[Rfam]
RNA sequence: AAAUACCCCAACGGCACUCCUCCUCCCGGCCGUAGGGGAAGCAAGACUUCAUGGCUCCUCCCGCCUGGUCUUGCGCUGAUGGAAAAAGGCCGGAUCCUCCCCCGGCCUUUUUCUUUU
Numbered sequence: 001a002a003a004u005a006c007c008c009c010a011a012c013g014g015c016a017c018u019c020c021u022c023c024u025c026c027c028g029g030c031c032g033u034a035g036g037g038g039a040a041g042c043a044a045g046a047c048u049u050c051a052u053g054g055c056u057c058c059u060c061c062c063g064c065c066u067g068g069u070c071u072u073g074c075g076c077u078g079a080u081g082g083a084a085a086a087a088g089g090c091c092g093g094a095u096c097c098u099c100c101c102c103c104g105g106c107c108u109u110u111u112u113c114u115u116u117u
Base pairs, nucleotide, nucleotide: 007037008036009035011033012032013031014030015029041074042073043072044071045070046069047068048067083112084111085110086109087108088107089106090105091104092103093102
Description: The family of this 117-nucleotide sequence from Phyllobacterium endophyticum is "Alphaproteobacterial ar14". The family's RNA type in Rfam is small RNA. Its family is annotated with biological process involved in symbiotic interaction in the Gene Ontology. Lineage of the source: Bacteria > Pseudomonadati > Alphaproteobacteria > Phyllobacteriaceae > Phyllobacterium. It scores 60 bits against the family's covariance model. The family has 118 seed sequences and 784 matches in Rfam 15.1. The base pairs follow the family's consensus structure.